[Rfam]
RNA: Glycine riboswitch aptamer
Organism: Mesocricetibacter intestinalis
RNA sequence: AACCCUUGGAGAGAUCCCGGUGGCGGAGGAUUAUAUGUAUCCCAUUUCCGUCUACUGAAGGACGCCGAAGGCGCAAAAGAGCGGUCGAAUUUUCGAUUGUUUUUGAAACGCUCAGGCAAAAGGACAGGGGCAGAAAG
Dot-bracket structure: ..((((((......(((..........................................))).(((((..(((...((((((((((((....))))))))))))....))))).))).......)))))).......